[Rfam]
RNA sequence: GAUCUAUGAUGAAAAUAGCCAAAUCUGAGCAUCAGCAGACCUUCCAUUCUGCUUUGAUGCAUGAUUGCUAUCGUUCUGAGA
Numbered sequence: 001g002a003u004c005u006a007u008g009a010u011g012a013a014a015a016u017a018g019c020c021a022a023a024u025c026u027g028a029g030c031a032u033c034a035g036c037a038g039a040c041c042u043u044c045c046a047u048u049c050u051g052c053u054u055u056g057a058u059g060c061a062u063g064a065u066u067g068c069u070a071u072c073g074u075u076c077u078g079a080g081a
Base pairs, nucleotide, nucleotide: 029060030059031058032057033056037050038049039048
The family of this 81-nucleotide RNA sequence from Nannospalax galili is "Small nucleolar RNA U2-19". Rfam links the family to the GO terms RNA processing and nucleolus. The base pairs follow the family's consensus structure, which is taken from published work. The family has 29 seed sequences and 1,147 matches in Rfam 15.1.